[Rfam]
RNA: HNH endonuclease-associated RNA and ORF (HEARO) RNA
Organism: Ktedonobacteria bacterium brp13
RNA sequence: GUCAGGAACCCCACGGGAUAAAAUCCGGGGGCUUGCUCAAGUAAGCCCACACCUGACCAGUCUUAGUCUUGAAACAGGCUCCCUUCGGGAAGAAAUAGGUACGGCAGGGUGCACGCCAGCGCUGCCCGCUACGGUUGCAGUUUAAACAAGGCUACAGGGUUAACCCAGUGAUUGCAACGUUAAACCUUCCCGAAGAUUGACGAGGCACACAUCAC
Numbered sequence: 001g002u003c004a005g006g007a008a009c010c011c012c013a014c015g016g017g018a019u020a021a022a023a024u025c026c027g028g029g030g031g032c033u034u035g036c037u038c039a040a041g042u043a044a045g046c047c048c049a050c051a052c053c054u055g056a057c058c059a060g061u062c063u064u065a066g067u068c069u070u071g072a073a074a075c076a077g078g079c080u081c082c083c084u085u086c087g088g089g090a091a092g093a094a095a096u097a098g099g100u101a102c103g104g105c106a107g108g109g110u111g112c113a114c115g116c117c118a119g120c121g122c123u124g125c126c127c128g129c130u131a132c133g134g135u136u137g138c139a140g141u142u143u144a145a146a147c148a149a150g151g152c153u154a155c156a157g158g159g160u161u162a163a164c165c166c167a168g169u170g171a172u173u174g175c176a177a178c179g180u181u182a183a184a185c186c187u188u189c190c191c192g193a194a195g196a197u198u199g200a201c202g203a204g205g206c207a208c209a210c211a212u213c214a215c
Base pairs, nucleotide, nucleotide: 001057002056003055004054005053006052010031011030012028015025016024032045033044034043035042060201061200062199065080066079067078068077069076083195084194085193086192087191088190089189090188091187092186099132100131103126104125105124106123107122109120110119115206116205117204134178135177136176137175138174139173140172141171142170146169147168150165151164153162154161